Rfam assigns this 319-nucleotide RNA from Mycena indigotica to the family "Group I catalytic intron". About the family: Group I catalytic introns are large self-splicing ribozymes. It scores 129 bits against the family's covariance model. The source organism's lineage runs through Eukaryota, Opisthokonta, Agaricomycotina, Marasmiineae and Mycena.
RNA sequence: CCAGAAAAGUUAAAUUGUGGAUAGCUUUUGAGAGCGACUACAUGAAAGUGGUUUGCUAGUGGGCAGUUAAUUACUGCCUGCGAGACUGUCAAAUUGCAGGAAAAUCCUUAGAGCCUUUGCUACCGCCUCUAUAUGGAAACGUAUAGCAGCGCACCAGGUUAAUUGCUCCUCGGGUAUGGUCAUAAUGCAAAGGAUUGGACAAUCUGCAGCCAAGUCCUAAGGGCGAAAAGCCUAUGGAACAGGUUCAACGACUAAAUGGCAGUCGGUCUUCAAGUAAUUGAAGGCUUAAGAUAUAGUCUGGCCCUUCAGAAAUGAAGCU
Numbered sequence: 001c002c003a004g005a006a007a008a009g010u011u012a013a014a015u016u017g018u019g020g021a022u023a024g025c026u027u028u029u030g031a032g033a034g035c036g037a038c039u040a041c042a043u044g045a046a047a048g049u050g051g052u053u054u055g056c057u058a059g060u061g062g063g064c065a066g067u068u069a070a071u072u073a074c075u076g077c078c079u080g081c082g083a084g085a086c087u088g089u090c091a092a093a094u095u096g097c098a099g100g101a102a103a104a105u106c107c108u109u110a111g112a113g114c115c116u117u118u119g120c121u122a123c124c125g126c127c128u129c130u131a132u133a134u135g136g137a138a139a140c141g142u143a144u145a146g147c148a149g150c151g152c153a154c155c156a157g158g159u160u161a162a163u164u165g166c167u168c169c170u171c172g173g174g175u176a177u178g179g180u181c182a183u184a185a186u187g188c189a190a191a192g193g194a195u196u197g198g199a200c201a202a203u204c205u206g207c208a209g210c211c212a213a214g215u216c217c218u219a220a221g222g223g224c225g226a227a228a229a230g231c232c233u234a235u236g237g238a239a240c241a242g243g244u245u246c247a248a249c250g251a252c253u254a255a256a257u258g259g260c261a262g263u264c265g266g267u268c269u270u271c272a273a274g275u276a277a278u279u280g281a282a283g284g285c286u287u288a289a290g291a292u293a294u295a296g297u298c299u300g301g302c303c304c305u306u307c308a309g310a311a312a313u314g315a316a317g318c319u
Stems, first nucleotide, its partner, number of pairs: 005029008032041001084264005090258002095208006105199003209244002215238003222232003248299001250298005266285008304317005